Rfam assigns this 128-nucleotide RNA from Erinaceus europaeus to the family "Small nucleolar RNA SNORA1". The source organism's lineage runs through Eukaryota, Opisthokonta, Chordata, Craniata and Erinaceus. It is one of the family's seed sequences.
RNA sequence: AGCCUCAUUCUAGAUAAAAAUGGGCACUGUUGAUUUAGGUGUUCAGAAAUAGAUGUGGCUACAUUGAUACAGGUUAAGCUUCCACCACAGCAUCUAUUGCAUUGGUGACAAUGAGGCCUGCAACAUGU
Numbered sequence: 001a002g003c004c005u006c007a008u009u010c011u012a013g014a015u016a017a018a019a020a021u022g023g024g025c026a027c028u029g030u031u032g033a034u035u036u037a038g039g040u041g042u043u044c045a046g047a048a049a050u051a052g053a054u055g056u057g058g059c060u061a062c063a064u065u066g067a068u069a070c071a072g073g074u075u076a077a078g079c080u081u082c083c084a085c086c087a088c089a090g091c092a093u094c095u096a097u098u099g100c101a102u103u104g105g106u107g108a109c110a111a112u113g114a115g116g117c118c119u120g121c122a123a124c125a126u127g128u
Stems, first nucleotide, its partner, number of pairs: 002059003006055003021045007070120004083107005
ACA1 is a member of the H/ACA class of snoRNA that guide the sites of modification of uridines to pseudouridines. Rfam 15.1 lists 1,282 matches to the family in 515 species. Gene Ontology terms of the family: nucleolus and RNA processing.